[Rfam]
RNA sequence: GAGUCUAACAUGCGCGCGAGUCAUUGGGCUGUACGAAACCCAAAGGCGCAGUGAAAGCGAGGGUCGCCCCGGGCUGACCCAGGUGGGAUCCUUUUGCCCCGUGCAGGAGGCGCACCACCGGCCCGUCCCGUCUGCGUCGUCAGUGGGGCGGAGCUAGAGCGCGCACGCUGGGACCCGAAAGAUGGUGAACUAUGCCUGAGUAGAACGAAGCCAGAGGAAACUCUGGUGGAAGUCCGUAGCGAUUCUGACGUGCAAAUCGAUCGUCAAACUUUGGUAUAGGGGCGAAAGACUAAUCGAACCAUUUAGUAGCUGGUU
Numbered sequence: 001g002a003g004u005c006u007a008a009c010a011u012g013c014g015c016g017c018g019a020g021u022c023a024u025u026g027g028g029c030u031g032u033a034c035g036a037a038a039c040c041c042a043a044a045g046g047c048g049c050a051g052u053g054a055a056a057g058c059g060a061g062g063g064u065c066g067c068c069c070c071g072g073g074c075u076g077a078c079c080c081a082g083g084u085g086g087g088a089u090c091c092u093u094u095u096g097c098c099c100c101g102u103g104c105a106g107g108a109g110g111c112g113c114a115c116c117a118c119c120g121g122c123c124c125g126u127c128c129c130g131u132c133u134g135c136g137u138c139g140u141c142a143g144u145g146g147g148g149c150g151g152a153g154c155u156a157g158a159g160c161g162c163g164c165a166c167g168c169u170g171g172g173a174c175c176c177g178a179a180a181g182a183u184g185g186u187g188a189a190c191u192a193u194g195c196c197u198g199a200g201u202a203g204a205a206c207g208a209a210g211c212c213a214g215a216g217g218a219a220a221c222u223c224u225g226g227u228g229g230a231a232g233u234c235c236g237u238a239g240c241g242a243u244u245c246u247g248a249c250g251u252g253c254a255a256a257u258c259g260a261u262c263g264u265c266a267a268a269c270u271u272u273g274g275u276a277u278a279g280g281g282g283c284g285a286a287a288g289a290c291u292a293a294u295c296g297a298a299c300c301a302u303u304u305a306g307u308a309g310c311u312g313g314u315u
Stems, first nucleotide, its partner, number of pairs: 005171003009167001011165007020047003025042004030037001051058002082119005090110006121154002123151003126147003174313002177310001181303006190279007198271003201267001203235001205233002210227007239264004244260002247258002281291002
This 315-nucleotide part of an RNA from Biomphalaria glabrata belongs to the Rfam family "Eukaryotic large subunit ribosomal RNA".
The match comes from Rfam's covariance-model search (3111 bits).
Rfam 15.1 lists 107,465 matches to the family in 2,616 species.